[Rfam]
RNA sequence: ACAGUCUGAAAAUCACUUGGGGUCUCCUGUGGCCCCUGGUGCCAUAACUGUGCCGACAGCAGAGGGAGCAUUAAACUCAUUGCCAAGGGGAAAGUGUGGGGAGUGAUACCCAUGUUCCUAUAAUC
Number, nucleotide and partner (000 for none) at each position: 001a000002c000003a000004g000005u000006c050007u000008g048009a000010a045011a000012a000013u000014c041015a040016c039017u000018u000019g000020g000021g034022g033023u032024c031025u000026c000027c000028u000029g000030u000031g024032g023033c022034c021035c000036c000037u000038g000039g016040u015041g014042c000043c000044a000045u010046a000047a000048c008049u000050g006051u000052g000053c000054c000055g000056a000057c000058a000059g000060c000061a000062g000063a000064g000065g118066g000067a116068g115069c114070a113071u112072u000073a000074a000075a000076c000077u106078c105079a104080u103081u102082g000083c000084c000085a097086a000087g000088g000089g000090g000091a000092a000093a000094g000095u000096g000097u085098g000099g000100g000101g000102a081103g080104u079105g078106a077107u000108a000109c000110c000111c000112a071113u070114g069115u068116u067117c000118c065119u000120a000121u000122a000123a000124u000125c000
This 125-nucleotide sequence from Bucco capensis belongs to the Rfam family "Small nucleolar RNA ACA64". The base pairs follow the family's consensus structure, which was predicted with WAR. By type it is an H/ACA-box small nucleolar RNA. Lineage of the source: Eukaryota > Eumetazoa > Chordata > Dipnotetrapodomorpha > Bucco. A reference for the family is Schattner et al. (2006), "A computational screen for mammalian pseudouridylation guide H/ACA RNAs", RNA.